[Rfam]
RNA sequence: ACUGGGUGCCGUUGCGGGUUCCUGUGAUGCAAGUGUAUGGCAAGUCACAGUGUGCGGCUACGAGAGUACUGGGGAAUCAGGGCUAACAUGUAUGCUUACUUGGGAAACCUGUCUCAUUGGAAUGAGGAGUUGGCCUCGCUGGCUUGGUGUAAACCGAGCGGGUGAUGCCAUUGAAGUGGAGGGCAAUGCGUGAGGCUGGUAACAGAGCAGCGAAUACCAUCCGCUCCACCAUGGUCAAGAGACUGCAGGAUUUCUUCCGGCCUUCAGGUCAGUCCCCCCUGAGUGGCAUCGUCUACCGCGUACUUUU
Numbered sequence: 001a002c003u004g005g006g007u008g009c010c011g012u013u014g015c016g017g018g019u020u021c022c023u024g025u026g027a028u029g030c031a032a033g034u035g036u037a038u039g040g041c042a043a044g045u046c047a048c049a050g051u052g053u054g055c056g057g058c059u060a061c062g063a064g065a066g067u068a069c070u071g072g073g074g075a076a077u078c079a080g081g082g083c084u085a086a087c088a089u090g091u092a093u094g095c096u097u098a099c100u101u102g103g104g105a106a107a108c109c110u111g112u113c114u115c116a117u118u119g120g121a122a123u124g125a126g127g128a129g130u131u132g133g134c135c136u137c138g139c140u141g142g143c144u145u146g147g148u149g150u151a152a153a154c155c156g157a158g159c160g161g162g163u164g165a166u167g168c169c170a171u172u173g174a175a176g177u178g179g180a181g182g183g184c185a186a187u188g189c190g191u192g193a194g195g196c197u198g199g200u201a202a203c204a205g206a207g208c209a210g211c212g213a214a215u216a217c218c219a220u221c222c223g224c225u226c227c228a229c230c231a232u233g234g235u236c237a238a239g240a241g242a243c244u245g246c247a248g249g250a251u252u253u254c255u256u257c258c259g260g261c262c263u264u265c266a267g268g269u270c271a272g273u274c275c276c277c278c279c280u281g282a283g284u285g286g287c288a289u290c291g292u293c294u295a296c297c298g299c300g301u302a303c304u305u306u307u
Base pairs, nucleotide, nucleotide: 001045002044003043004023005022006021008019009018010017028042029041030040049304050303051302052301053300054299055298056297057296059295060294062292064290065289067285068284069283070282072280073279074278080275081274082273083272084271086269089266090265092263094261095260105252106251108249109248110247111246112245113241114240117238118237119236120235122232123231124229126227127226128225129224130223131170132169133168134167136165137164138163139162140161142159143158144157145156146155147154148153172176178222179221181218182217187214189212190211191210196205197204198203

The family of this 307-nucleotide sequence from Tieghemiomyces parasiticus is "Metazoan signal recognition particle RNA". Lineage of the source: Eukaryota > Kickxellomycotina > Dimargaritomycetes > Dimargaritales > Tieghemiomyces. The base pairs follow the family's consensus structure, which is taken from published work.